[Rfam]
Rfam assigns this 61-nucleotide RNA sequence from Quercus lobata to the family "Plastid-psbA-4 3UTR RNA". Clan: Plastid-psbA 3UTR RNA clan. A reference for the family is Richter et al. (2023), "Retrograde signaling in plants: A critical review focusing on the GUN pathway and beyond", Plant Commun. Rfam classes the family as a cis-regulatory element. The family's consensus secondary structure was predicted with LocARNA.
RNA sequence: AUAAGAAAGGAGCAAUAUCAACCCUCUUGAUAAAAUAAGAAGUUAAUUAUUGCUCCUUUUU
Numbered sequence: 001a002u003a004a005g006a007a008a009g010g011a012g013c014a015a016u017a018u019c020a021a022c023c024c025u026c027u028u029g030a031u032a033a034a035a036u037a038a039g040a041a042g043u044u045a046a047u048u049a050u051u052g053c054u055c056c057u058u059u060u061u
Stems, first nucleotide, its partner, number of pairs: 006059012021044001025040005